A member of the RNA family "Cyano-1 RNA" from Prochlorococcus marinus, 71 nucleotides long. Rfam 15.1 lists 283 matches to the family in 194 species.
RNA sequence: AUUUGUGUGAAGGAGAUGUUUUACUCAAAAAAGUGGAAACAAGGAAACACUUAAUUUUGUAAAGCUACAUA
Numbered sequence: 001a002u003u004u005g006u007g008u009g010a011a012g013g014a015g016a017u018g019u020u021u022u023a024c025u026c027a028a029a030a031a032a033g034u035g036g037a038a039a040c041a042a043g044g045a046a047a048c049a050c051u052u053a054a055u056u057u058u059g060u061a062a063a064g065c066u067a068c069a070u071a
Stems, first nucleotide, its partner, number of pairs: 018065004026059002032052001033050003